[Rfam]
RNA sequence: GGCCUCACCUCAUGGUGAAAAACAAACGAAAUGCGGGCAGUGCCGGUAGACGGGACCGAUAAUCCCGGCCGACGGUAACGAAGCAAGAGAAAAUUGCAGACAC
Dot-bracket structure: .....((((....)))).......................(((.....(..((((.......))))...)....)))..........................

RT-17 RNA: a 103-nucleotide sequence. It is annotated as a small RNA.